This 104-nucleotide RNA sequence from Gossypium anomalum belongs to the Rfam family "Small nucleolar RNA snoR99".
For this family Rfam cites "Experimental RNomics: identification of 140 candidates for small non-messenger RNAs in the plant Arabidopsis thaliana" (Marker et al., Curr Biol, 2002).
The family's RNA type in Rfam is H/ACA-box small nucleolar RNA.
The base pairs follow the family's consensus structure, which was predicted with WAR.

RNA sequence: GUGCUUUAGGGAUGAACAAGUCCUUAGUUUAAUAACCAUCUAAACCACUUAGUCAGUGGCCUUUUUGGUGGCUUAUCCAUCAUUAUGGGAUGGAUGGUAUAUUG
Numbered sequence: 001g002u003g004c005u006u007u008a009g010g011g012a013u014g015a016a017c018a019a020g021u022c023c024u025u026a027g028u029u030u031a032a033u034a035a036c037c038a039u040c041u042a043a044a045c046c047a048c049u050u051a052g053u054c055a056g057u058g059g060c061c062u063u064u065u066u067g068g069u070g071g072c073u074u075a076u077c078c079a080u081c082a083u084u085a086u087g088g089g090a091u092g093g094a095u096g097g098u099a100u101a102u103u104g
Stems, first nucleotide, its partner, number of pairs: 035098006052080002056076004